[Rfam]
RNA sequence: AAUCAUUGCUAGGGGUCUGCUUUACUUGAGUGUAUUUUUAGGUAUAAAGCAGUGAGAAUCACCCUUUGAACCUGAUGCGGGUAAUGCCGCCGUAGGAAAGCAGUUUUCACUUUGC
Numbered sequence: 001a002a003u004c005a006u007u008g009c010u011a012g013g014g015g016u017c018u019g020c021u022u023u024a025c026u027u028g029a030g031u032g033u034a035u036u037u038u039u040a041g042g043u044a045u046a047a048a049g050c051a052g053u054g055a056g057a058a059u060c061a062c063c064c065u066u067u068g069a070a071c072c073u074g075a076u077g078c079g080g081g082u083a084a085u086g087c088c089g090c091c092g093u094a095g096g097a098a099a100g101c102a103g104u105u106u107u108c109a110c111u112u113u114g115c
Stems, first nucleotide, its partner, number of pairs: 006103005011065004017052008071096004077090004

This 115-nucleotide sequence from Methylotenera sp. belongs to the Rfam family "TPP riboswitch aptamer (THI element)". The match comes from Rfam's covariance-model search (68 bits).